[Rfam]
Small nucleolar SNORD12/SNORD106: a 94-nucleotide sequence from Orycteropus afer.
RNA sequence: GCCGUUGCAACUGAUGACAUAACUUUUUUCCCCAUCAGAUCGACCAUGUUGAUCUAAUUAAACUACUAGCCAGUUUUUUGUCUGAUGCAUCGGA
Numbered sequence: 001g002c003c004g005u006u007g008c009a010a011c012u013g014a015u016g017a018c019a020u021a022a023c024u025u026u027u028u029u030c031c032c033c034a035u036c037a038g039a040u041c042g043a044c045c046a047u048g049u050u051g052a053u054c055u056a057a058u059u060a061a062a063c064u065a066c067u068a069g070c071c072a073g074u075u076u077u078u079u080g081u082c083u084g085a086u087g088c089a090u091c092g093g094a
Stems, first nucleotide, its partner, number of pairs: 002093003006089004
For this family Rfam cites "RNomics: an experimental approach that identifies 201 candidates for novel, small, non-messenger RNAs in mouse" (Huttenhofer et al., EMBO J, 2001).